[Rfam]
RNA: Archaeal small subunit ribosomal RNA, nucleotides 500 to 859
RNA sequence: GGCCUAAAGCGUCCGUAGCCGGUCUAGGGGAGCUCCUGGUGAAAUCGGCAGGCUUAACCUGUCGGCUGGCCAGGAGAACCACUAGACUAGGGACCGGGAGAGGCCGGAGGUAUUCCUGGGGUACCGGUAAAAUGGUAUAAUCCUAGGAGGACCUACGGUGGCGAAGGCGUCCGGCUAGAACGGGUCCGACGGUGAGGGACGAAGGCCAGGGGAGCAAACCGGAUUAGAUACCCGGGUAGUCCUGGCUGUAAAUGAUGCGGGCUUGGUGUUGCGUAACCCACGAGGUUGCGCAGUGCCGGAGGGAAGCCGUUAAGUCCGCCGCCUGGGGAGUACGCCCGCAAGGGUUAAACUUAAACCAAU
Numbered sequence: 001g002g003c004c005u006a007a008a009g010c011g012u013c014c015g016u017a018g019c020c021g022g023u024c025u026a027g028g029g030g031a032g033c034u035c036c037u038g039g040u041g042a043a044a045u046c047g048g049c050a051g052g053c054u055u056a057a058c059c060u061g062u063c064g065g066c067u068g069g070c071c072a073g074g075a076g077a078a079c080c081a082c083u084a085g086a087c088u089a090g091g092g093a094c095c096g097g098g099a100g101a102g103g104c105c106g107g108a109g110g111u112a113u114u115c116c117u118g119g120g121g122u123a124c125c126g127g128u129a130a131a132a133u134g135g136u137a138u139a140a141u142c143c144u145a146g147g148a149g150g151a152c153c154u155a156c157g158g159u160g161g162c163g164a165a166g167g168c169g170u171c172c173g174g175c176u177a178g179a180a181c182g183g184g185u186c187c188g189a190c191g192g193u194g195a196g197g198g199a200c201g202a203a204g205g206c207c208a209g210g211g212g213a214g215c216a217a218a219c220c221g222g223a224u225u226a227g228a229u230a231c232c233c234g235g236g237u238a239g240u241c242c243u244g245g246c247u248g249u250a251a252a253u254g255a256u257g258c259g260g261g262c263u264u265g266g267u268g269u270u271g272c273g274u275a276a277c278c279c280a281c282g283a284g285g286u287u288g289c290g291c292a293g294u295g296c297c298g299g300a301g302g303g304a305a306g307c308c309g310u311u312a313a314g315u316c317c318g319c320c321g322c323c324u325g326g327g328g329a330g331u332a333c334g335c336c337c338g339c340a341a342g343g344g345u346u347a348a349a350c351u352u353a354a355a356c357c358a359a360u
Stems, first nucleotide, its partner, number of pairs: 001323003009320001011200004016194001018193003022087006030080001032079001033076008046064007091187003094183003102176007109153002113149008124135003161168002205246006214240002219235004257319006265297014301308002325352003334345004